[Rfam]
RNA: TPP riboswitch aptamer (THI element)
RNA sequence: CAUUUUGUCCGGGGGAGCCUCGUCAGGAGGCUGAGAGGCCAUCGGCGCGUCGACCCGACGCGGCAUGGCGACCCUUCGAACCUGAUCCAGUUGAGACUGGCGGAGGGAGGAGUGAAUGACGUUCC
Numbered sequence: 001c002a003u004u005u006u007g008u009c010c011g012g013g014g015g016a017g018c019c020u021c022g023u024c025a026g027g028a029g030g031c032u033g034a035g036a037g038g039c040c041a042u043c044g045g046c047g048c049g050u051c052g053a054c055c056c057g058a059c060g061c062g063g064c065a066u067g068g069c070g071a072c073c074c075u076u077c078g079a080a081c082c083u084g085a086u087c088c089a090g091u092u093g094a095g096a097c098u099g100g101c102g103g104a105g106g107g108a109g110g111a112g113u114g115a116a117u118g119a120c121g122u123u124c125c
Base pairs, nucleotide, nucleotide: 008111009110010109011075012074013073014072017031018030019029020028021027038069039068040067041066042065081106082105083104087100088099089098090097